[Rfam]
RNA: Eukaryotic large subunit ribosomal RNA, nucleotides 3326 to 3746
RNA sequence: CAAUUAUUUACGUAAUAGUAGCAUGAUUUAGUACGAGAGGAACUGUCAUGCCUGAUCACUGGUCUGUAGGUUUAUCUGACAAGAUAGUGACCUGCCGCUACCAUCAGUUCGUUAAUGGCUGAACGCCUCUAAGUCAGAAACGAUUCUAGAAACUGUAAAUUUACUGCUAAGAGCGUGGAUGUUGUAGGUAACAUUAGACUAUGGGGGUGGGAACCCUUGUAGUUUUAUACCAUAUGAUUAUUCGCUGUUACACUGCGGCUUUCUCAGGAUUGUCAUGGUGGAUGGCUAAAUUAUAACUUAAAUCCUCAUUCCGCUCAACUCUUCGAUUGUAGACGACUAUCAAUAAACUGGGUGCUGUAAGCUUCCGAGUAGCGUUCAGUUACGAGGGGUUGAGGCUUUUCCUUUUGUUUUCCAUAUUGUU
Numbered sequence: 001c002a003a004u005u006a007u008u009u010a011c012g013u014a015a016u017a018g019u020a021g022c023a024u025g026a027u028u029u030a031g032u033a034c035g036a037g038a039g040g041a042a043c044u045g046u047c048a049u050g051c052c053u054g055a056u057c058a059c060u061g062g063u064c065u066g067u068a069g070g071u072u073u074a075u076c077u078g079a080c081a082a083g084a085u086a087g088u089g090a091c092c093u094g095c096c097g098c099u100a101c102c103a104u105c106a107g108u109u110c111g112u113u114a115a116u117g118g119c120u121g122a123a124c125g126c127c128u129c130u131a132a133g134u135c136a137g138a139a140a141c142g143a144u145u146c147u148a149g150a151a152a153c154u155g156u157a158a159a160u161u162u163a164c165u166g167c168u169a170a171g172a173g174c175g176u177g178g179a180u181g182u183u184g185u186a187g188g189u190a191a192c193a194u195u196a197g198a199c200u201a202u203g204g205g206g207g208u209g210g211g212a213a214c215c216c217u218u219g220u221a222g223u224u225u226u227a228u229a230c231c232a233u234a235u236g237a238u239u240a241u242u243c244g245c246u247g248u249u250a251c252a253c254u255g256c257g258g259c260u261u262u263c264u265c266a267g268g269a270u271u272g273u274c275a276u277g278g279u280g281g282a283u284g285g286c287u288a289a290a291u292u293a294u295a296a297c298u299u300a301a302a303u304c305c306u307c308a309u310u311c312c313g314c315u316c317a318a319c320u321c322u323u324c325g326a327u328u329g330u331a332g333a334c335g336a337c338u339a340u341c342a343a344u345a346a347a348c349u350g351g352g353u354g355c356u357g358u359a360a361g362c363u364u365c366c367g368a369g370u371a372g373c374g375u376u377c378a379g380u381u382a383c384g385a386g387g388g389g390u391u392g393a394g395g396c397u398u399u400u401c402c403u404u405u406u407g408u409u410u411u412c413c414a415u416a417u418u419g420u421u
Stems, first nucleotide, its partner, number of pairs: 006160007016148003021051007052107005060100003067094005072087006109143003116136005166312001169309001171307002316419003323416001325341003329337001345410004350403003354396002361390004366386001369383005